[Rfam]
Nucleotides: 046
Stems, first nucleotide, its partner, number of pairs: 001021001003019002005016004035046004
Number, partner (000 for none) and nucleotide at each position: 001021c002000c003019g004018c005016c006015g007014g008013g009000a010000c011000g012000g013008c014007c015006u016005g017000u018004g019003c020000c021001g022000c023000c024000a025000c026000c027000c028000g029000g030000a031000c032000c033000a034000c035046c036045g037044g038043g039000a040000c041000g042000a043038c044037c045036c046035g

Guanidine-II riboswitch aptamer (mini-ykkC): a 46-nucleotide sequence from Catellatospora methionotrophica. Rfam describes the family as follows. Simpler in structure and has fewer highly conserved nucleotide positions than the ykkC-yxkD leader. It scores 33 bits against the family's covariance model.